[Rfam]
RNA: t44 RNA
Organism: Teredinibacter turnerae
RNA sequence: CUGUAAUUUAUUUAAAGUCGCACAUAUACCGUCACAUCUGCCUGGGUGCCGUGCCUUUGGGCUUCGGUUGGCUGGUGGGGUAUAUGGAGGCCUAAC
Numbered sequence: 001c002u003g004u005a006a007u008u009u010a011u012u013u014a015a016a017g018u019c020g021c022a023c024a025u026a027u028a029c030c031g032u033c034a035c036a037u038c039u040g041c042c043u044g045g046g047u048g049c050c051g052u053g054c055c056u057u058u059g060g061g062c063u064u065c066g067g068u069u070g071g072c073u074g075g076u077g078g079g080g081u082a083u084a085u086g087g088a089g090g091c092c093u094a095a096c
Stems, first nucleotide, its partner, number of pairs: 023086008035077004040072003048068004